[Rfam]
RNA sequence: UAGCCAUGUCGCACCUCUCUUACAGGUGGGUUGUGGUAGGUCUGUGCCAGGUAGCCGCCUGGCACAGACCGCUU
Numbered sequence: 001u002a003g004c005c006a007u008g009u010c011g012c013a014c015c016u017c018u019c020u021u022a023c024a025g026g027u028g029g030g031u032u033g034u035g036g037u038a039g040g041u042c043u044g045u046g047c048c049a050g051g052u053a054g055c056c057g058c059c060u061g062g063c064a065c066a067g068a069c070c071g072c073u074u
Stems, first nucleotide, its partner, number of pairs: 004036003012028005039070006046063006
Shown here is a 74-nucleotide RNA sequence from Cupriavidus metallidurans, a member of the family "Plasmid transferred anti-sense RNA". For this family Rfam cites "A novel family of plasmid-transferred anti-sense ncRNAs" (Findeiss et al., RNA Biol, 2010). Rfam classes the family as an antitoxin RNA. NCBI's taxonomy places the organism under Bacteria, Pseudomonadati, Betaproteobacteria, Cupriavidus, Cupriavidus metallidurans.